RNA sequence: AUGAGUUCCCAGCUCUGAGAACUGAAUUCCAUAGGUUGUUACAUCUAACAAAACCCGUGGGGUUCAGUUCUGUAGCUUGGAUCACAUUA
Dot-bracket structure: .......((.(((....((((((((........(((................)))........))))))))...))).)).........
The family of this 89-nucleotide sequence from Eleutherodactylus coqui is "mir-146 microRNA precursor family".
The match comes from Rfam's covariance-model search (81 bits).
Gene Ontology terms of the family: miRNA-mediated post-transcriptional gene silencing and RISC complex.
The base pairs follow the family's consensus structure, which was predicted with WAR.